RNA: RT-15 RNA
Organism: Paraburkholderia caffeinitolerans
RNA sequence: AAUCGCCCGCUCCGUGGAGGUCAAGGCUUUCAUGGCUGAGCGAUCUUUCAAUCUGGUCGUGCCGCUGGCUCACAAGGCCACCGCCAUGCGCAUCGAGGAAACCGACUGCCAGCGUGCAGAUAGGUCCAGCGCAGUUUCCCGCUUGAGAAAUCGACCGGGCGACGUAGAUAGCACGAUAUUUCC
Number, nucleotide and partner (000 for none) at each position: 001a000002a000003u000004c042005g041006c040007c000008c000009g000010c000011u000012c035013c034014g033015u032016g031017g030018a029019g028020g027021u026022c000023a000024a000025g000026g021027c020028u019029u018030u017031c016032a015033u014034g013035g012036c000037u000038g000039a000040g006041c005042g004043a000044u000045c000046u000047u000048u000049c000050a000051a000052u000053c000054u000055g000056g000057u176058c175059g174060u173061g172062c171063c083064g082065c000066u080067g079068g078069c077070u076071c000072a000073c000074a000075a000076g070077g069078c068079c067080a066081c000082c064083g063084c000085c000086a000087u133088g132089c131090g130091c129092a000093u000094c000095g000096a000097g127098g126099a125100a000101a000102c124103c123104g000105a000106c119107u118108g117109c116110c000111a000112g000113c000114g000115u000116g109117c108118a107119g106120a000121u000122a000123g103124g102125u099126c098127c097128a000129g091130c090131g089132c088133a087134g000135u162136u161137u000138c159139c158140c157141g156142c000143u154144u153145g152146a151147g000148a000149a000150a000151u146152c145153g144154a143155c000156c141157g140158g139159g138160c000161g136162a135163c000164g000165u000166a000167g000168a000169u000170a000171g062172c061173a060174c059175g058176a057177u000178a000179u000180u000181u000182c000183c000